[Rfam]
Mammalian CPEB3 ribozyme: an 80-nucleotide sequence from Alligator sinensis. The literature on the family includes a 2006 paper in Science by Salehi-Ashtiani et al., "A genomewide search for ribozymes reveals an HDV-like sequence in the human CPEB3 gene". The family's consensus secondary structure is taken from published work.
RNA sequence: AGAGGUCACAAGUUCAAGGCCAUAGCAGAAGCACUUAUGGUGUAGCCUUGUCAGAUUCUAACAAAUCUGCAAAUUAUGCU
Numbered sequence: 001a002g003a004g005g006u007c008a009c010a011a012g013u014u015c016a017a018g019g020c021c022a023u024a025g026c027a028g029a030a031g032c033a034c035u036u037a038u039g040g041u042g043u044a045g046c047c048u049u050g051u052c053a054g055a056u057u058c059u060a061a062c063a064a065a066u067c068u069g070c071a072a073a074u075u076a077u078g079c080u
Stems, first nucleotide, its partner, number of pairs: 017048004024080004029075002031043003052069006